[Rfam]
RNA sequence: UACCAACAAACCCUAUCUCCACCUCCACGUGGUGAACGCUGGGAACUCUUUCUUAACGAAAAGCUUCAGACGGAGAAGG
Numbered sequence: 001u002a003c004c005a006a007c008a009a010a011c012c013c014u015a016u017c018u019c020c021a022c023c024u025c026c027a028c029g030u031g032g033u034g035a036a037c038g039c040u041g042g043g044a045a046c047u048c049u050u051u052c053u054u055a056a057c058g059a060a061a062a063g064c065u066u067c068a069g070a071c072g073g074a075g076a077a078g079g
Stems, first nucleotide, its partner, number of pairs: 012079003016075001018073002021033003044066002047063001049061004
The record is a 79-nucleotide RNA sequence from Hermetia illucens, which matches "drz-agam-1 ribozyme" in Rfam. For this family Rfam cites "Widespread occurrence of self-cleaving ribozymes" (Webb et al., Science, 2009). The source organism's lineage runs through Eukaryota, Insecta, Endopterygota, Aparaglossata and Hermetia.